This 130-nucleotide RNA from Vitreoscilla sp. belongs to the Rfam family "Glycine riboswitch aptamer".
RNA sequence: GCGUUCCUCACUGGAGAGAGGCGAUGCGGCCGGGGUCGAGAGACCACGGCGAGAUCGUCCACCGAAGGGGCAAGCGGCGCCGCACACCGGCGCUGCCAAUCUCUCAGGUAAAGCGGACAGCGAGGGCAUC
Numbered sequence: 001g002c003g004u005u006c007c008u009c010a011c012u013g014g015a016g017a018g019a020g021g022c023g024a025u026g027c028g029g030c031c032g033g034g035g036u037c038g039a040g041a042g043a044c045c046a047c048g049g050c051g052a053g054a055u056c057g058u059c060c061a062c063c064g065a066a067g068g069g070g071c072a073a074g075c076g077g078c079g080c081c082g083c084a085c086a087c088c089g090g091c092g093c094u095g096c097c098a099a100u101c102u103c104u105c106a107g108g109u110a111a112a113g114c115g116g117a118c119a120g121c122g123a124g125g126g127c128a129u130c
Base pairs, nucleotide, nucleotide: 006125007124008123009122011120012119013118020059021058022057023056024055025054061109062108063107064105065104068103069102070101074096075095076094077093078092079091080090081089
Dot-bracket structure: .....((((.(((......((((((............................)))))).(((((..(((...((((((((.......))))))))....))))).)))........))).)))).....

Notes: The source organism's lineage runs through Bacteria, Pseudomonadati, Pseudomonadota, Neisseriales and Vitreoscilla.